Annotation: A member of the RNA family "glmS glucosamine-6-phosphate activated ribozyme aptamer" from Brevibacillus borstelensis, 169 nucleotides long. For this family Rfam cites "Backbone and nucleobase contacts to glucosamine-6-phosphate in the glmS ribozyme" (Jansen et al., Nat Struct Mol Biol, 2006). Pairs were carried over by alignment from the consensus structure, which is taken from published work. It scores 108 bits against the family's covariance model. The source organism's lineage runs through Bacteria, Bacillota, Bacilli, Caryophanales and Brevibacillus borstelensis.

RNA sequence: CUAGAUGGGAAAGCGCCAGCACUGCAGCUGCCCGACGUGGAGUGCAGUGGACGAGGUGGAGGUUUAUCGAAGCAUUCGGCGGAUGCCUCCCGGCCGAGUAUCGCGGCCGCGGAGCGCGGGGGCAAAACAACAGGGCGACUUGUUGCACAAGACCCGCGCAUGAUACAGA
Dot-bracket structure: ...................(((((((..(..........)..)))))))........(((((....((((.....))))......)))))((((((.......))))))....(((((((.......(((((((....))))))).......)))))))..........
Numbered sequence: 001c002u003a004g005a006u007g008g009g010a011a012a013g014c015g016c017c018a019g020c021a022c023u024g025c026a027g028c029u030g031c032c033c034g035a036c037g038u039g040g041a042g043u044g045c046a047g048u049g050g051a052c053g054a055g056g057u058g059g060a061g062g063u064u065u066a067u068c069g070a071a072g073c074a075u076u077c078g079g080c081g082g083a084u085g086c087c088u089c090c091c092g093g094c095c096g097a098g099u100a101u102c103g104c105g106g107c108c109g110c111g112g113a114g115c116g117c118g119g120g121g122g123c124a125a126a127a128c129a130a131c132a133g134g135g136c137g138a139c140u141u142g143u144u145g146c147a148c149a150a151g152a153c154c155c156g157c158g159c160a161u162g163a164u165a166c167a168g169a
Stems, first nucleotide, its partner, number of pairs: 020049007029040001058090005067079004091109006114159007128145007